[Rfam]
RNA sequence: UGGAAGUGAUGAAAUAGAGAUAAUUGGAUGUCUCUCUGAAUGGAGUGUGUGUGAUAAAUGGAAUUUAAACCAAGGGGGGUGGGGAACGUGUGUGUGCACGCGUGUAUGUAUAGAAGAGGCUUGAAAUGGGGGCACUGAUAAUGCAGUGCUGAUUCCGGAGUGCAUCUGAGGCAUGUUGUUAGGUUCUGGGGUACCACUUUGCAACAUUGCCAAUGAUUAAAGCCCAAAACAAGCCCACCAGGACAAGCCUAGGCAUCCUAAAUCUCUAACAGGUUCACUAAUGGAAGUGAUCCUGUGAUCUGAUCCAA
Numbered sequence: 001u002g003g004a005a006g007u008g009a010u011g012a013a014a015u016a017g018a019g020a021u022a023a024u025u026g027g028a029u030g031u032c033u034c035u036c037u038g039a040a041u042g043g044a045g046u047g048u049g050u051g052u053g054a055u056a057a058a059u060g061g062a063a064u065u066u067a068a069a070c071c072a073a074g075g076g077g078g079g080u081g082g083g084g085a086a087c088g089u090g091u092g093u094g095u096g097c098a099c100g101c102g103u104g105u106a107u108g109u110a111u112a113g114a115a116g117a118g119g120c121u122u123g124a125a126a127u128g129g130g131g132g133c134a135c136u137g138a139u140a141a142u143g144c145a146g147u148g149c150u151g152a153u154u155c156c157g158g159a160g161u162g163c164a165u166c167u168g169a170g171g172c173a174u175g176u177u178g179u180u181a182g183g184u185u186c187u188g189g190g191g192u193a194c195c196a197c198u199u200u201g202c203a204a205c206a207u208u209g210c211c212a213a214u215g216a217u218u219a220a221a222g223c224c225c226a227a228a229a230c231a232a233g234c235c236c237a238c239c240a241g242g243a244c245a246a247g248c249c250u251a252g253g254c255a256u257c258c259u260a261a262a263u264c265u266c267u268a269a270c271a272g273g274u275u276c277a278c279u280a281a282u283g284g285a286a287g288u289g290a291u292c293c294u295g296u297g298a299u300c301u302g303a304u305c306c307a308a
Stems, first nucleotide, its partner, number of pairs: 001307004174206006182195003186191001
This 308-nucleotide RNA from Crotophaga sulcirostris belongs to the Rfam family "Small Cajal body-specific RNA 7".
The family's RNA type in Rfam is small Cajal body RNA.
A search with the family's covariance model found it, with a score of 178 bits.
Taxonomically the source falls in Crotophaga (Eukaryota, Bilateria, Chordata, Craniata).